[Rfam]
RNA sequence: AUUCAACCCAAACAAGCAUCUACUUCGUCAGGUUCAAACACCACCACCAACCCAAACCAGUCAACAUGUCUCCCUGCACCUGCAACUGCUGCUCCGGCGAGUGCAACUCUUGCGCCUGCAACAGCUGCUCCGUAUGUCAUUUCCAUCUCGUC
Dot-bracket structure: ..........................................................................(((....(((.....)))....)))...(((......((....))......)))........................
RNA: A. fumigatus sRNA Afu_254
Organism: Aspergillus puulaauensis